[Rfam]
RNA sequence: AAUAAAUAUGGUAUGAAAACUUGUAUAGCAUCAGGAAUAUGGCUGAUUGCGUUUCUACCUGCUGACCGUAAAUCAGCGGACUACAAGUAAAUCUUUUUAGCUA
Numbered sequence: 001a002a003u004a005a006a007u008a009u010g011g012u013a014u015g016a017a018a019a020c021u022u023g024u025a026u027a028g029c030a031u032c033a034g035g036a037a038u039a040u041g042g043c044u045g046a047u048u049g050c051g052u053u054u055c056u057a058c059c060u061g062c063u064g065a066c067c068g069u070a071a072a073u074c075a076g077c078g079g080a081c082u083a084c085a086a087g088u089a090a091a092u093c094u095u096u097u098u099a100g101c102u103a
Stems, first nucleotide, its partner, number of pairs: 019088007030047005059079007
Purine riboswitch aptamer: a 103-nucleotide sequence from Hoskinsella hominis.
A search with the family's covariance model found it, with a score of 73 bits.
The organism belongs to Hoskinsella, within Bacteria.
The family's consensus secondary structure is taken from published work.